[Rfam]
RNA sequence: GGAUCGAUGAUGCACCCUCAACAUGCAUUCCUGGGAAAAUUCUGAACAAAAUGAUGUGAGAACUCACUACCGAUCUCCUCAUCGAAAACUGAAGUCC
Numbered sequence: 001g002g003a004u005c006g007a008u009g010a011u012g013c014a015c016c017c018u019c020a021a022c023a024u025g026c027a028u029u030c031c032u033g034g035g036a037a038a039a040u041u042c043u044g045a046a047c048a049a050a051a052u053g054a055u056g057u058g059a060g061a062a063c064u065c066a067c068u069a070c071c072g073a074u075c076u077c078c079u080c081a082u083c084g085a086a087a088a089c090u091g092a093a094g095u096c097c
Stems, first nucleotide, its partner, number of pairs: 001097004026058003029054002032049001034047001
RNA: Small nucleolar RNA SNORD116